[Rfam]
RNA sequence: CAUAAACUUUAGGGGUGUCCUUAACUUUGGUUAGGUCUGAGAAAUACCCUUUGAACCUGAUGCGGUUAGUACCGACGAAGGGAAAAGUAAAUAUCACAUU
Numbered sequence: 001c002a003u004a005a006a007c008u009u010u011a012g013g014g015g016u017g018u019c020c021u022u023a024a025c026u027u028u029g030g031u032u033a034g035g036u037c038u039g040a041g042a043a044a045u046a047c048c049c050u051u052u053g054a055a056c057c058u059g060a061u062g063c064g065g066u067u068a069g070u071a072c073c074g075a076c077g078a079a080g081g082g083a084a085a086a087g088u089a090a091a092u093a094u095c096a097c098a099u100u
Stems, first nucleotide, its partner, number of pairs: 006088005011050004016044001017037001019035003056081003063074003
Dot-bracket structure: .....(((((((((.((.(((...........))).)......)..)))).....(((....(((......)))....)))..)))))............